[Rfam]
RNA sequence: UUCUUAUCAAGAGAGGCGGAGGGACUGGCCCGAUGAUGCCCGGCAACCAAUUGUUCAUUUUCCAUGAACAAUAAGGUGCCAAUUCCUGCAGAGCAUAUCAUGUGCUCUGAGAGAUGAGGA
Numbered sequence: 001u002u003c004u005u006a007u008c009a010a011g012a013g014a015g016g017c018g019g020a021g022g023g024a025c026u027g028g029c030c031c032g033a034u035g036a037u038g039c040c041c042g043g044c045a046a047c048c049a050a051u052u053g054u055u056c057a058u059u060u061u062c063c064a065u066g067a068a069c070a071a072u073a074a075g076g077u078g079c080c081a082a083u084u085c086c087u088g089c090a091g092a093g094c095a096u097a098u099c100a101u102g103u104g105c106u107c108u109g110a111g112a113g114a115u116g117a118g119g120a
Stems, first nucleotide, its partner, number of pairs: 001120008013041001015040003021031003025088001027086002042080004047076002050072008084112001089109008

A member of the RNA family "SAM riboswitch aptamer (S box leader)" from Brevibacillus fluminis, 120 nucleotides long. The organism belongs to Brevibacillus, within Bacteria. The match comes from Rfam's covariance-model search (93 bits).